The record is a 54-nucleotide RNA sequence from Liparis tanakae, which matches "UnaL2 LINE 3' element" in Rfam. The eel long interspersed element (LINE) UnaL2 and its partner short interspersed element (SINE) share a conserved 3' tail containing a stem-loop that is critical for their retrotransposition. Gene Ontology term of the family: transposition, RNA-mediated.
[Rfam]
RNA sequence: AUAACAACUUAUUGUAAGUCGCUUUGGAUAAAAGCGUCUGCUAAACGACAUGCA
Numbered sequence: 001a002u003a004a005c006a007a008c009u010u011a012u013u014g015u016a017a018g019u020c021g022c023u024u025u026g027g028a029u030a031a032a033a034g035c036g037u038c039u040g041c042u043a044a045a046c047g048a049c050a051u052g053c054a
Stems, first nucleotide, its partner, number of pairs: 013043001014041003020036006